[Rfam]
The record is a 108-nucleotide RNA from Clostridiaceae bacterium 14S0207, which matches "SAM riboswitch aptamer (S box leader)" in Rfam. The base pairs follow the family's consensus structure, which is taken from published work. The source organism's lineage runs through Bacteria, Bacillota, Clostridia, Eubacteriales and Clostridiaceae. The match comes from Rfam's covariance-model search (84 bits). The SAM riboswitch is found upstream of a number of genes which code for proteins involved in methionine or cysteine biosynthesis in Gram-positive bacteria.
RNA sequence: CUCUUAUUAAGAGUGGCUGAGGGACUGGCCCUAUGAUGCCCGGCAACCCGCAUAUUUAAUGCAAGGUGCUAAUUCCAGAGUGAUAACCUUGUUAUCCAAAGAUAAGAG
Numbered sequence: 001c002u003c004u005u006a007u008u009a010a011g012a013g014u015g016g017c018u019g020a021g022g023g024a025c026u027g028g029c030c031c032u033a034u035g036a037u038g039c040c041c042g043g044c045a046a047c048c049c050g051c052a053u054a055u056u057u058a059a060u061g062c063a064a065g066g067u068g069c070u071a072a073u074u075c076c077a078g079a080g081u082g083a084u085a086a087c088c089u090u091g092u093u094a095u096c097c098a099a100a101g102a103u104a105a106g107a108g
Stems, first nucleotide, its partner, number of pairs: 001108008013041001015040003021031003025078004042070004047066002050062003074100001082096005